This 142-nucleotide sequence from Paenibacillus sp. OAS669 belongs to the Rfam family "c-di-AMP riboswitch aptamer (ydaO/yuaA leader)". Pairs were carried over by alignment from the consensus structure.

RNA sequence: AAUUUCAUAAAGCUUAAUCUUCGAAAGAAGAGCGGGGGACCCAUCAUUAAGGGGUGAAUCCUAUUGCGUAGAGCAAAGGAAGGGCAUGCUUCUCACAGCCCUAAUCCGACAGCUAACCUCGUCAGCGGAAGUGAGAAGGAGA
Numbered sequence: 001a002a003u004u005u006c007a008u009a010a011a012g013c014u015u016a017a018u019c020u021u022c023g024a025a026a027g028a029a030g031a032g033c034g035g036g037g038g039a040c041c042c043a044u045c046a047u048u049a050a051g052g053g054g055u056g057a058a059u060c061c062u063a064u065u066g067c068g069u070a071g072a073g074c075a076a077a078g079g080a081a082g083g084g085c086a087u088g089c090u091u092c093u094c095a096c097a098g099c100c101c102u103a104a105u106c107c108g109a110c111a112g113c114u115a116a117c118c119u120c121g122u123c124a125g126c127g128g129a130a131g132u133g134a135g136a137a138g139g140a141g142a
Stems, first nucleotide, its partner, number of pairs: 012126003018031003032122006042051001052107003060079003082101004